[Rfam]
RNA sequence: UCCCCCGCGGCUCCUCCCUGACGCGGGUUCCCAUCGAUGGCUCGAUGGGGUCGUUACCCCCGUUGCGCGUUUGGCGACGGGGUUUUUUUU
Numbered sequence: 001u002c003c004c005c006c007g008c009g010g011c012u013c014c015u016c017c018c019u020g021a022c023g024c025g026g027g028u029u030c031c032c033a034u035c036g037a038u039g040g041c042u043c044g045a046u047g048g049g050g051u052c053g054u055u056a057c058c059c060c061c062g063u064u065g066c067g068c069g070u071u072u073g074g075c076g077a078c079g080g081g082g083u084u085u086u087u088u089u090u
Base pairs, nucleotide, nucleotide: 004027005026006025007024008023009022029050030049031048032047034045035044036043058082059081060080061079062078063077064076065075
A member of the RNA family "Burkholderia RNA 7 (anti-hemB)", 90 nucleotides long.
This RNA motif was identified by computational search in b-proteobacteria Burkholderia. Co-purified with Hfq, expression confirmed by Northern blot.
Rfam classes the family as a small RNA.
It scores 64 bits against the family's covariance model.
The literature on the family includes a 2013 paper in Genomics by Ramos et al., "Experimental identification of small non-coding regulatory RNAs in the opportunistic human pathogen Burkholderia cenocepacia J2315".